The family of this 85-nucleotide RNA from Streptomyces spongiae is "nrdJ RNA". By type it is a small RNA. The family's consensus secondary structure is taken from published work.
RNA sequence: ACCUGUCGUGGAGGGCCGCGUGAGCGGCGCCGCGACACAAGACAGAACACCGUGUCACGGGAACAAAGUGGCACUUCAGGGCGUU
Number, nucleotide and partner (000 for none) at each position: 001a000002c000003c000004u037005g036006u035007c034008g033009u032010g031011g030012a000013g000014g000015g028016c027017c026018g025019c024020g000021u000022g000023a000024g019025c018026g017027g016028c015029g000030c011031c010032g009033c008034g007035a006036c005037a004038c000039a000040a000041g000042a000043c000044a000045g000046a000047a000048c000049a000050c000051c000052g074053u073054g072055u071056c070057a069058c068059g000060g000061g000062a000063a000064c000065a000066a000067a000068g058069u057070g056071g055072c054073a053074c052075u000076u000077c000078a000079g000080g000081g000082c000083g000084u000085u000